[Rfam]
RNA sequence: UGGACAGAUUAUUGUAUGUCGACUGUAUUCACGGAUGAAAUAGGGGAUUAGACUUUUAUUAAAGGGAAGUGAAUCAAUUUAACAUAUAGACUCCU
Numbered sequence: 001u002g003g004a005c006a007g008a009u010u011a012u013u014g015u016a017u018g019u020c021g022a023c024u025g026u027a028u029u030c031a032c033g034g035a036u037g038a039a040a041u042a043g044g045g046g047a048u049u050a051g052a053c054u055u056u057u058a059u060u061a062a063a064g065g066g067a068a069g070u071g072a073a074u075c076a077a078u079u080u081a082a083c084a085u086a087u088a089g090a091c092u093c094c095u
Stems, first nucleotide, its partner, number of pairs: 002094003009089004014085002017082001021079002024076002027074006036064001037059001039057002042054002

Notes: Rfam assigns this 95-nucleotide sequence from Nicotiana attenuata to the family "MIR6152 microRNA precursor family". Its family is annotated with miRNA-mediated post-transcriptional gene silencing and RISC complex in the Gene Ontology. Taxonomically the source falls in Nicotiana (Eukaryota, Viridiplantae, Streptophytina, eudicotyledons).